The family of this 140-nucleotide RNA sequence from Castor canadensis is "Small Cajal body specific RNA 3". The base pairs follow the family's consensus structure, which was predicted with RNAalifold.

RNA sequence: GGUGGAAGCUGCAGGAACCAACCAUGUGGACAAAUGAGAAAAUACCUUUUGUCUACAGAAAGCAGCAAUCCUACAUAAACAUGGAGGUCUCUGUCUGACUUAGGAUAGCUGCUAAGUCAGAUCGUUCCCCUCCAUACACU
Numbered sequence: 001g002g003u004g005g006a007a008g009c010u011g012c013a014g015g016a017a018c019c020a021a022c023c024a025u026g027u028g029g030a031c032a033a034a035u036g037a038g039a040a041a042a043u044a045c046c047u048u049u050u051g052u053c054u055a056c057a058g059a060a061a062g063c064a065g066c067a068a069u070c071c072u073a074c075a076u077a078a079a080c081a082u083g084g085a086g087g088u089c090u091c092u093g094u095c096u097g098a099c100u101u102a103g104g105a106u107a108g109c110u111g112c113u114a115a116g117u118c119a120g121a122u123c124g125u126u127c128c129c130c131u132c133c134a135u136a137c138a139c140u
Stems, first nucleotide, its partner, number of pairs: 004071003008066005025057007036048003083133005091124001093122003097118007
Dot-bracket structure: ...(((.(((((............(((((((....(((.......)))..)))))))....)))))..)))...........(((((...(.(((.(((((((........))))))).))).)....))))).......
Gene Ontology terms of the family: nucleolus, Cajal body and RNA processing.
By type it is a small Cajal body RNA.
Rfam's curators write: scaRNAs are a specific class of small nuclear RNAs which localise to the Cajal bodies and guide the modification of RNA polymerase II transcribed spliceosomal RNAs U1, U2, U4, U5 and U12.